[Rfam]
RNA sequence: GGCAGCUUUGUAUGAUGUUACUUCUGACGUAUCGGAGAAGACAUCAGAUAAAUCUGUGCU
Numbered sequence: 001g002g003c004a005g006c007u008u009u010g011u012a013u014g015a016u017g018u019u020a021c022u023u024c025u026g027a028c029g030u031a032u033c034g035g036a037g038a039a040g041a042c043a044u045c046a047g048a049u050a051a052a053u054c055u056g057u058g059c060u
Stems, first nucleotide, its partner, number of pairs: 002057004007052004013046006021040005
Record summary: This 60-nucleotide sequence from Gasterosteus aculeatus belongs to the Rfam family "mir-723 microRNA precursor family". A search with the family's covariance model found it, with a score of 66 bits. Rfam links the family to the GO terms RISC complex and miRNA-mediated post-transcriptional gene silencing. The source organism's lineage runs through Eukaryota, Chordata, Teleostomi, Clupeocephala and Gasterosteus.